[Rfam]
RNA sequence: UCGACUGUACUUGAACAGGAUUCAUUUCUACAGUAGAUACACCCUAAUCAGUAUUCUCCAAAUACUGACAAGCUUCUCAUGUCGGAAGAAGAGUAAUGACUCCCUAGUCUGAGCCGGAAGUCUGCAUCGCUCCCAAGGUUGAAAGACCAGGGACUGUGCUUGAUGAUGGCCCCCUAACAUCAUUCCAGUUGGGGCGGACGGCUAGGGAGCGUUCGGACGGCUG
Numbered sequence: 001u002c003g004a005c006u007g008u009a010c011u012u013g014a015a016c017a018g019g020a021u022u023c024a025u026u027u028c029u030a031c032a033g034u035a036g037a038u039a040c041a042c043c044c045u046a047a048u049c050a051g052u053a054u055u056c057u058c059c060a061a062a063u064a065c066u067g068a069c070a071a072g073c074u075u076c077u078c079a080u081g082u083c084g085g086a087a088g089a090a091g092a093g094u095a096a097u098g099a100c101u102c103c104c105u106a107g108u109c110u111g112a113g114c115c116g117g118a119a120g121u122c123u124g125c126a127u128c129g130c131u132c133c134c135a136a137g138g139u140u141g142a143a144a145g146a147c148c149a150g151g152g153a154c155u156g157u158g159c160u161u162g163a164u165g166a167u168g169g170c171c172c173c174c175u176a177a178c179a180u181c182a183u184u185c186c187a188g189u190u191g192g193g194g195c196g197g198a199c200g201g202c203u204a205g206g207g208a209g210c211g212u213u214c215g216g217a218c219g220g221c222u223g
Stems, first nucleotide, its partner, number of pairs: 001037002003034001005033003013027003018022001045071001048068001050066006081221004100209010113170003124159004131153004137148004172194007

This 223-nucleotide RNA sequence from Micromonas commoda belongs to the Rfam family "Plant small nucleolar RNA U3".
Rfam classes the family as a C/D-box small nucleolar RNA.
Rfam's curators put it in the seed alignment.
Pairs were carried over by alignment from the consensus structure, which is taken from published work.
Its family is annotated with nucleolus and RNA processing in the Gene Ontology.
Rfam describes the family as follows. Small nucleolar RNAs (snoRNAs) are involved in the processing and modification of rRNA in the nucleolus. There are two main classes of snoRNAs: the box C/D class, and the box H/ACA class. U3 snoRNA is a member of the box C/D class.
The source organism's lineage runs through Eukaryota, Viridiplantae, Mamiellophyceae, Mamiellaceae and Micromonas.
For this family Rfam cites "Comparative analysis of eukaryotic U3 snoRNA" (Marz and Stadler, RNA Biol, 2010).